[Rfam]
RNA sequence: CAAGCCAGAAGAGGAGCAUCGCCCAGGUAAGGUAUCGGAGGAGCCGUAAUCCGCUGAAGAUACUUAAGGGGGAGCGAUGCCGAGACGAAAUACAGUGCGGCUGUAUUUUGCCGACCGCAGGGGCUGAAUCCUCUGGGUUGUCACCAGCAUCGUUCUGCAAGGGCAGAGCGUUUAGCAAGGUGGAGCGCUUCUGGGUGU
Numbered sequence: 001c002a003a004g005c006c007a008g009a010a011g012a013g014g015a016g017c018a019u020c021g022c023c024c025a026g027g028u029a030a031g032g033u034a035u036c037g038g039a040g041g042a043g044c045c046g047u048a049a050u051c052c053g054c055u056g057a058a059g060a061u062a063c064u065u066a067a068g069g070g071g072g073a074g075c076g077a078u079g080c081c082g083a084g085a086c087g088a089a090a091u092a093c094a095g096u097g098c099g100g101c102u103g104u105a106u107u108u109u110g111c112c113g114a115c116c117g118c119a120g121g122g123g124c125u126g127a128a129u130c131c132u133c134u135g136g137g138u139u140g141u142c143a144c145c146a147g148c149a150u151c152g153u154u155c156u157g158c159a160a161g162g163g164c165a166g167a168g169c170g171u172u173u174a175g176c177a178a179g180g181u182g183g184a185g186c187g188c189u190u191c192u193g194g195g196u197g198u
Stems, first nucleotide, its partner, number of pairs: 006193006016080007024072001030065007084112001086110010113139004118135006141183005
A member of the RNA family "Lysine riboswitch aptamer" from Prodigiosinella confusarubida, 198 nucleotides long. Riboswitches are metabolite binding domains within certain messenger RNAs that serve as precision sensors for their corresponding targets. The source organism's lineage runs through Bacteria, Pseudomonadota, Enterobacterales, Pectobacteriaceae and Prodigiosinella.